Small nucleolar RNA SNORA55: a 129-nucleotide RNA sequence from Tauraco erythrolophus. It scores 112 bits against the family's covariance model. Rfam links the family to the GO terms RNA processing and nucleolus. By type it is an H/ACA-box small nucleolar RNA. Lineage of the source: Eukaryota > Eumetazoa > Euteleostomi > Aves > Tauraco. About the family: ACA55 is a member of the H/ACA class of snoRNA that guide the sites of modification of uridines to pseudouridines.
RNA sequence: GCACCAAAUCUUUCCCAUUCCUCACUGUGCGGUGUGGGCCUGGGGACACAUGGUGCUUACAGAAAAGCAGAGUAAAUCCAGACAGGUGACUUUUCAUUGGGUACCUGUCUCUACACCUCUGCAACAGCU
Numbered sequence: 001g002c003a004c005c006a007a008a009u010c011u012u013u014c015c016c017a018u019u020c021c022u023c024a025c026u027g028u029g030c031g032g033u034g035u036g037g038g039c040c041u042g043g044g045g046a047c048a049c050a051u052g053g054u055g056c057u058u059a060c061a062g063a064a065a066a067g068c069a070g071a072g073u074a075a076a077u078c079c080a081g082a083c084a085g086g087u088g089a090c091u092u093u094u095c096a097u098u099g100g101g102u103a104c105c106u107g108u109c110u111c112u113a114c115a116c117c118u119c120u121g122c123a124a125c126a127g128c129u
Base pairs, nucleotide, nucleotide: 001056002055003054004053005052012046013045014044015043016042017041020038021037067122068121069120070119071118072117080110081109082108083107084106085105086104087103094101095100